[Rfam]
The family of this 349-nucleotide part of an RNA from Azospirillum lipoferum is "Bacterial large subunit ribosomal RNA".
RNA sequence: GAAAGCUAUUUAGGUAGCGCGUCGCGUAUUGCCGCGGGGGGUAGAGCACUGGAUGGGCUAGGGGGGCGCGAGCCUUACCAAACCUAACCAAACUCCGAAUACCCGUGAGCAGAGCGCGGCAGACAGACGGUGGGUGCUAAGGUCCAUCGUCGAGAGGGAAACAGCCCAGACCGCCAGCUAAGGUCCCCAAAUCACGGCUAAGUGGGAAAGGAUGUGGGAAGGCCAUGACAACCAGGAGGUUGGCUUAGAAGCAGCCAUCCUUUAAAGAAAGCGUAAUAGCUCACUGGUCUAGUUAAGCCGGCCUGCGCCGAAAAUGUAUCGGGGCUCAAGCCGUGUACCGAAGCUGCGG
Numbered sequence: 001g002a003a004a005g006c007u008a009u010u011u012a013g014g015u016a017g018c019g020c021g022u023c024g025c026g027u028a029u030u031g032c033c034g035c036g037g038g039g040g041g042u043a044g045a046g047c048a049c050u051g052g053a054u055g056g057g058c059u060a061g062g063g064g065g066g067c068g069c070g071a072g073c074c075u076u077a078c079c080a081a082a083c084c085u086a087a088c089c090a091a092a093c094u095c096c097g098a099a100u101a102c103c104c105g106u107g108a109g110c111a112g113a114g115c116g117c118g119g120c121a122g123a124c125a126g127a128c129g130g131u132g133g134g135u136g137c138u139a140a141g142g143u144c145c146a147u148c149g150u151c152g153a154g155a156g157g158g159a160a161a162c163a164g165c166c167c168a169g170a171c172c173g174c175c176a177g178c179u180a181a182g183g184u185c186c187c188c189a190a191a192u193c194a195c196g197g198c199u200a201a202g203u204g205g206g207a208a209a210g211g212a213u214g215u216g217g218g219a220a221g222g223c224c225a226u227g228a229c230a231a232c233c234a235g236g237a238g239g240u241u242g243g244c245u246u247a248g249a250a251g252c253a254g255c256c257a258u259c260c261u262u263u264a265a266a267g268a269a270a271g272c273g274u275a276a277u278a279g280c281u282c283a284c285u286g287g288u289c290u291a292g293u294u295a296a297g298c299c300g301g302c303c304u305g306c307g308c309c310g311a312a313a314a315u316g317u318a319u320c321g322g323g324g325c326u327c328a329a330g331c332c333g334u335g336u337a338c339c340g341a342a343g344c345u346g347c348g349g
Base pairs, nucleotide, nucleotide: 005018006017007016008015009014020122021120022119023118024117025116026115027114030113031110032109033107034106035105036104037103038102044096045094046093050090051089052088054086055085056084057083061079062078063076064075065074066073067072126151127150128149129148130147131146132145133144134143135142156167157166158165171349172348173347174346176345177344178343182339183338184337191336193335194334195333196332197331198330210309211308214306215305216304217303218302221299222298223297231288232287233286234285235284237261238260239259242256243255244254262266267282271280272279
The organism belongs to Azospirillum lipoferum, within Bacteria. Its family is annotated with structural constituent of ribosome and ribosome in the Gene Ontology. The base pairs follow the family's consensus structure, which is taken from published work.